A member of the RNA family "Small nucleolar RNA SNORD79" from Crypturellus soui, 78 nucleotides long.
Its Rfam clan is "SNORD74 clan".
[Rfam]
RNA sequence: UACUGUUUGUGAUGAUAGUUCUAAGCAAUGGGAAUCUCUCUGAAAGAUGCUGAGGAGGACUCUUACACUGAAACAGUA
Numbered sequence: 001u002a003c004u005g006u007u008u009g010u011g012a013u014g015a016u017a018g019u020u021c022u023a024a025g026c027a028a029u030g031g032g033a034a035u036c037u038c039u040c041u042g043a044a045a046g047a048u049g050c051u052g053a054g055g056a057g058g059a060c061u062c063u064u065a066c067a068c069u070g071a072a073a074c075a076g077u078a
Stems, first nucleotide, its partner, number of pairs: 001078007
Notes:
The match comes from Rfam's covariance-model search (71 bits). About the family: snoRNA U79 or Z22 is found in intron 7 of the gas5 gene in humans and is also present in mice. Lineage of the source: Eukaryota > Metazoa > Deuterostomia > Archelosauria > Crypturellus. Its family is annotated with nucleolus and RNA processing in the Gene Ontology.